Rfam assigns this 139-nucleotide RNA sequence from Jaculus jaculus to the family "Small Cajal body specific RNA 21". scaRNAs are a specific class of small nuclear RNAs which localise to the Cajal bodies and guide the modification of RNA polymerase II transcribed spliceosomal RNAs U1, U2, U4, U5 and U12. It is annotated as a small Cajal body RNA. A search with the family's covariance model found it, with a score of 112 bits.
[Rfam]
RNA sequence: UGGCUCAGUUUCCUGGGUGGUGGAUUCAGCUAUCCCACCUCCCCUCAGCAGAGCCUAGAGUAACAGGGGCUAGUGGCUGCCUGUGUGGGAGAGGUGCUUAAGCAAGGAGCCUUGCCUGGGCUGCCCUAGCCCCACAUUU
Numbered sequence: 001u002g003g004c005u006c007a008g009u010u011u012c013c014u015g016g017g018u019g020g021u022g023g024a025u026u027c028a029g030c031u032a033u034c035c036c037a038c039c040u041c042c043c044c045u046c047a048g049c050a051g052a053g054c055c056u057a058g059a060g061u062a063a064c065a066g067g068g069g070c071u072a073g074u075g076g077c078u079g080c081c082u083g084u085g086u087g088g089g090a091g092a093g094g095u096g097c098u099u100a101a102g103c104a105a106g107g108a109g110c111c112u113u114g115c116c117u118g119g120g121c122u123g124c125c126c127u128a129g130c131c132c133c134a135c136a137u138u139u
Stems, first nucleotide, its partner, number of pairs: 002055005015043003019039005066133005072127002076125001080120003087112003